[Rfam]
RNA sequence: UUCGUUGCCCGAAAGUGGUCAAAUAUUUCUACUUGAUCUCGCAAGAGUGAUAGAAGAAAUUAGAGCCACAGGGUAACGCGUUCCGUCUAGAAACACGG
Numbered sequence: 001u002u003c004g005u006u007g008c009c010c011g012a013a014a015g016u017g018g019u020c021a022a023a024u025a026u027u028u029c030u031a032c033u034u035g036a037u038c039u040c041g042c043a044a045g046a047g048u049g050a051u052a053g054a055a056g057a058a059a060u061u062a063g064a065g066c067c068a069c070a071g072g073g074u075a076a077c078g079c080g081u082u083c084c085g086u087c088u089a090g091a092a093a094c095a096c097g098g
Stems, first nucleotide, its partner, number of pairs: 001080001003078008015069002025060006034052001039046002083098004
A member of the RNA family "Archaeal large subunit ribosomal RNA" from uncultured marine crenarchaeote AD1000-23-H12, 98 nucleotides of a longer RNA. Pairs were carried over by alignment from the consensus structure, which is taken from published work. It is one of the family's seed sequences.